[Rfam]
RNA sequence: CUGUGGUGCAUUGUAGUUGCAUUGCAUGUGUCUCAGCUGGGUGCAAUGUUCCUGCAGUGCAAGACAG
Number, nucleotide and partner (000 for none) at each position: 001c067002u066003g065004u064005g000006g000007u061008g060009c059010a058011u057012u056013g055014u054015a053016g052017u000018u000019g049020c000021a047022u046023u045024g044025c043026a042027u041028g000029u000030g000031u000032c000033u000034c000035a000036g000037c000038u000039g000040g000041g027042u026043g025044c024045a023046a022047u021048g000049u019050u000051c000052c016053u015054g014055c013056a012057g011058u010059g009060c008061a007062a000063g000064a004065c003066a002067g001